[Rfam]
RNA sequence: UAUCGAUAAAGGCAAAGCCAUUGAAAAAUGGGGACGCAAAACUAUUAGGGGCUAAAGUCAAUGCGACUAUGCCAGCCAGUUACCGAA
Numbered sequence: 001u002a003u004c005g006a007u008a009a010a011g012g013c014a015a016a017g018c019c020a021u022u023g024a025a026a027a028a029u030g031g032g033g034a035c036g037c038a039a040a041a042c043u044a045u046u047a048g049g050g051g052c053u054a055a056a057g058u059c060a061a062u063g064c065g066a067c068u069a070u071g072c073c074a075g076c077c078a079g080u081u082a083c084c085g086a087a
Base pairs, nucleotide, nucleotide: 012037013036018031019030020029021028022027040081041080042079043078048077049076050073051072052071057067058066059065
Overview:
A member of the RNA family "c-di-GMP-I riboswitch aptamer" from Paenibacillus sp. FSL H7-0331, 87 nucleotides long. A search with the family's covariance model found it, with a score of 75 bits. NCBI's taxonomy places the organism under Bacteria, Bacilli, Caryophanales, Paenibacillaceae, Paenibacillus.